[Rfam]
A member of the RNA family "Purine riboswitch aptamer" from Mediterraneibacter gnavus, 96 nucleotides long.
The family's consensus secondary structure is taken from published work.
RNA sequence: UAUUUAUACCAGAAAUUAACUUGUAUAAGUUCGUGAUCGGAUGAACGUUUCUACCAACUGCCGUAACAGUUGACUACAGAUUUUUGGGAUUCCAAA
Numbered sequence: 001u002a003u004u005u006a007u008a009c010c011a012g013a014a015a016u017u018a019a020c021u022u023g024u025a026u027a028a029g030u031u032c033g034u035g036a037u038c039g040g041a042u043g044a045a046c047g048u049u050u051c052u053a054c055c056a057a058c059u060g061c062c063g064u065a066a067c068a069g070u071u072g073a074c075u076a077c078a079g080a081u082u083u084u085u086g087g088g089a090u091u092c093c094a095a096a
Stems, first nucleotide, its partner, number of pairs: 018082002021079005029046006055072006